The family of this 86-nucleotide RNA sequence from Porphyromonas sp. HMSC065F10 is "Group II catalytic intron D1-D4-1". Lineage of the source: Bacteria > Pseudomonadati > Bacteroidota > Bacteroidales > Porphyromonas. About the family: Group II introns are found in rRNA, tRNA and mRNA of organelles in fungi, plants and protists, and also in mRNA in bacteria. The match comes from Rfam's covariance-model search (39 bits). Rfam links the family to the GO term Group II intron splicing. Pairs were carried over by alignment from the consensus structure.
RNA sequence: CAGUCCAUUAAGGGAUAGUAACAACGAAUGUCGAGGAGUCAGCAGAGGUCGAAGUAGCCGUUCUUGAGUAGAACAAGGCAAAGGAC
Numbered sequence: 001c002a003g004u005c006c007a008u009u010a011a012g013g014g015a016u017a018g019u020a021a022c023a024a025c026g027a028a029u030g031u032c033g034a035g036g037a038g039u040c041a042g043c044a045g046a047g048g049u050c051g052a053a054g055u056a057g058c059c060g061u062u063c064u065u066g067a068g069u070a071g072a073a074c075a076a077g078g079c080a081a082a083g084g085a086c
Base pairs, nucleotide, nucleotide: 001018003016004015005014006013039046040045048086049085050084057079058078059077060074061073062072